[Rfam]
RNA sequence: UAAAUCAAAAGCCAAACCCCGGAUGACCGGGGGACGGAAAGCCACGGGACUUAUGCUUCAGCAGGCUUCGCGCUGCUAAAGUUGGCCGGGUUGCCGGG
Dot-bracket structure: ...........((...((((((....))))))...))..((((.((((((((..........................)))))..)))))))......
Numbered sequence: 001u002a003a004a005u006c007a008a009a010a011g012c013c014a015a016a017c018c019c020c021g022g023a024u025g026a027c028c029g030g031g032g033g034a035c036g037g038a039a040a041g042c043c044a045c046g047g048g049a050c051u052u053a054u055g056c057u058u059c060a061g062c063a064g065g066c067u068u069c070g071c072g073c074u075g076c077u078a079a080a081g082u083u084g085g086c087c088g089g090g091u092u093g094c095c096g097g098g
Stems, first nucleotide, its partner, number of pairs: 012037002017032006040092004045088003048083005
The family of this 98-nucleotide sequence from Geobacter sp. OR-1 is "c-di-GMP-I riboswitch aptamer". Taxonomically the source falls in Geobacter (Bacteria, Pseudomonadati, Desulfuromonadia, Geobacteraceae). The match comes from Rfam's covariance-model search (59 bits).